Rfam assigns this 36-nucleotide RNA sequence from Flavobacteria bacterium BBFL7 to the family "S16-Flavobacteria ribosomal protein leader".

[Rfam]
RNA sequence: AUUAAUAACUCGGGUCGGGCACCCACAAAUUUUAAU
Numbered sequence: 001a002u003u004a005a006u007a008a009c010u011c012g013g014g015u016c017g018g019g020c021a022c023c024c025a026c027a028a029a030u031u032u033u034a035a036u
Stems, first nucleotide, its partner, number of pairs: 001036005012024004

The match comes from Rfam's covariance-model search (36 bits).